[Rfam]
RNA sequence: UGUAACCAAUGGGGGGGUCCGGUGAGGCGGGCUGAGAUAAGCACCCGGUUGAUGUGCUUGACCCUUUGAACCUGAUCUGGUUAAUACCAGCGAAGGGAAUGUGGGAAACUUUUUU
Numbered sequence: 001u002g003u004a005a006c007c008a009a010u011g012g013g014g015g016g017g018u019c020c021g022g023u024g025a026g027g028c029g030g031g032c033u034g035a036g037a038u039a040a041g042c043a044c045c046c047g048g049u050u051g052a053u054g055u056g057c058u059u060g061a062c063c064c065u066u067u068g069a070a071c072c073u074g075a076u077c078u079g080g081u082u083a084a085u086a087c088c089a090g091c092g093a094a095g096g097g098a099a100u101g102u103g104g105g106a107a108a109c110u111u112u113u114u115u
Stems, first nucleotide, its partner, number of pairs: 006104003011065004016059001017032005040058004071096003077090004
RNA: TPP riboswitch aptamer (THI element)
Organism: Desulforamulus profundi